[Rfam]
RNA sequence: AUGAUCCGCAGUGCGGGGUCGCUCAGGCCCCGCGCUGAGAGCGCAGUAACAAAACAAGGACGGUAAGCCA
Numbered sequence: 001a002u003g004a005u006c007c008g009c010a011g012u013g014c015g016g017g018g019u020c021g022c023u024c025a026g027g028c029c030c031c032g033c034g035c036u037g038a039g040a041g042c043g044c045a046g047u048a049a050c051a052a053a054a055c056a057a058g059g060a061c062g063g064u065a066a067g068c069c070a
Stems, first nucleotide, its partner, number of pairs: 009037006016030005
RNA: sucC RNA